[Rfam]
RNA sequence: AGCUUUGCGCAGUGGGAGUAUCGUAGCCAAUGAGGUUUAUCCGAGGCGCGAUUAUUGCUAAUAUGGAAGACUGUUGAAUUACAGACCUGUACCUCUGAAACAAAUAAUACAUUAUAUGUUUAAAAAAAA
Number, nucleotide and partner (000 for none) at each position: 001a000002g000003c000004u000005u000006u000007g000008c000009g000010c000011a000012g000013u000014g000015g000016g000017a000018g000019u000020a052021u051022c050023g049024u048025a000026g047027c046028c045029a000030a000031u000032g000033a000034g042035g041036u000037u000038u000039a000040u000041c035042c034043g000044a000045g028046g027047c026048g024049c023050g022051a021052u020053u000054a000055u000056u000057g000058c000059u000060a000061a000062u000063a000064u000065g000066g000067a000068a000069g000070a000071c000072u000073g000074u000075u000076g000077a000078a000079u000080u000081a000082c000083a000084g000085a000086c000087c000088u000089g000090u000091a000092c000093c000094u125095c000096u123097g000098a121099a120100a119101c118102a117103a000104a115105u114106a113107a112108u000109a000110c000111a000112u107113u106114a105115u104116a000117u102118g101119u100120u099121u098122a000123a096124a000125a094126a000127a000128a000129a000
RNA: U4 spliceosomal RNA
Organism: Leptonychotes weddellii